[Rfam]
RNA: Streptomyces sRNA 4677
RNA sequence: CGCUCCGGUGCCGUCGGCGGUCUCCCCGAGGACCACGAGAGGGAAAAAAAACCCCACCAAGCCCCACCCCUCCCGCCCACGGCGCACGCUCACUCGCCCGAGUGAACAUCACGAACUCAGCUGGAUCCGGGACCGGUUGUCUGCCCUACGCUCAGCGCAGCACGGCACAACUCCGGACAUACAACGGCCCCCGCCGGGACUGGCAUCCCGAUGCGAGGGCCUGACCACCAAGGAAGCCGAACCCUUCCCG
Numbered sequence: 001c002g003c004u005c006c007g008g009u010g011c012c013g014u015c016g017g018c019g020g021u022c023u024c025c026c027c028g029a030g031g032a033c034c035a036c037g038a039g040a041g042g043g044a045a046a047a048a049a050a051a052c053c054c055c056a057c058c059a060a061g062c063c064c065c066a067c068c069c070c071u072c073c074c075g076c077c078c079a080c081g082g083c084g085c086a087c088g089c090u091c092a093c094u095c096g097c098c099c100g101a102g103u104g105a106a107c108a109u110c111a112c113g114a115a116c117u118c119a120g121c122u123g124g125a126u127c128c129g130g131g132a133c134c135g136g137u138u139g140u141c142u143g144c145c146c147u148a149c150g151c152u153c154a155g156c157g158c159a160g161c162a163c164g165g166c167a168c169a170a171c172u173c174c175g176g177a178c179a180u181a182c183a184a185c186g187g188c189c190c191c192c193g194c195c196g197g198g199a200c201u202g203g204c205a206u207c208c209c210g211a212u213g214c215g216a217g218g219g220c221c222u223g224a225c226c227a228c229c230a231a232g233g234a235a236g237c238c239g240a241a242c243c244c245u246u247c248c249c250g
Base pairs, nucleotide, nucleotide: 007229008228009227010226016077017076018075019074090105091104092103093102094101095100120156121155122154123153124152186221187220188219189218190217192215193214194213196209197208198207199206232248233247234246235245236244